[Rfam]
Nucleotides: 122
Base pairs, nucleotide, nucleotide: 007040008039009038012035013034014033015032016031047077048076050074051073052072053071054070055069086117087116088115089114090113091112092111093110094109095108
Number, partner (000 for none) and nucleotide at each position: 001000g002000g003000g004000u005000g006000c007040g008039g009038c010000g011000a012035g013034c014033c015032c016031u017000c018000c019000u020000c021000c022000u023000c024000c025000u026000c027000c028000c029000u030000g031016a032015g033014g034013g035012u036000g037000c038009g039008c040007c041000a042000g043000a044000a045000u046000a047077c048076c049000g050074c051073g052072g053071g054070c055069c056000c057000c058000u059000c060000c061000u062000c063000c064000u065000c066000c067000c068000g069055g070054g071053c072052c073051c074050g075000a076048g077047g078000a079000c080000a081000a082000g083000a084000g085000a086117c087116g088115g089114c090113g091112g092111g093110c094109c095108c096000c097000u098000c099000c100000u101000c102000c103000u104000c105000c106000c107000u108095g109094g110093g111092c112091c113090c114089g115088c116087c117086g118000u119000u120000u121000u122000g